[Rfam]
RNA sequence: GCUUUAUCAAGAGUGGUUGAGGGACAGGCCCUGUGAAACCACAGCAACCUGCAUUUGUAAGGUGCUAAUACCUGCGGCUUACCGAGUGAUGAUAG
Numbered sequence: 001g002c003u004u005u006a007u008c009a010a011g012a013g014u015g016g017u018u019g020a021g022g023g024a025c026a027g028g029c030c031c032u033g034u035g036a037a038a039c040c041a042c043a044g045c046a047a048c049c050u051g052c053a054u055u056u057g058u059a060a061g062g063u064g065c066u067a068a069u070a071c072c073u074g075c076g077g078c079u080u081a082c083c084g085a086g087u088g089a090u091g092a093u094a095g
Stems, first nucleotide, its partner, number of pairs: 004092005013042005021031003025074004043066004048062002050059003070087001075084003